[Rfam]
RNA sequence: UGCUUUUUUCGCCCAGGCGGAGCUCGACCGCCGUUUGAAGGGCUGAAGCGAUUCAUCGACCAGCACCGCCCCAUGCACGGGGUCGAGCCCAUCUGCAAAGUGCUGCAGAUGGCCCCG
Numbered sequence: 001u002g003c004u005u006u007u008u009u010c011g012c013c014c015a016g017g018c019g020g021a022g023c024u025c026g027a028c029c030g031c032c033g034u035u036u037g038a039a040g041g042g043c044u045g046a047a048g049c050g051a052u053u054c055a056u057c058g059a060c061c062a063g064c065a066c067c068g069c070c071c072c073a074u075g076c077a078c079g080g081g082g083u084c085g086a087g088c089c090c091a092u093c094u095g096c097a098a099a100g101u102g103c104u105g106c107a108g109a110u111g112g113c114c115c116c117g
Stems, first nucleotide, its partner, number of pairs: 016032005078117005089112002092109006
RNA: ALIL pseudoknot
Organism: Thiomonas sp. X19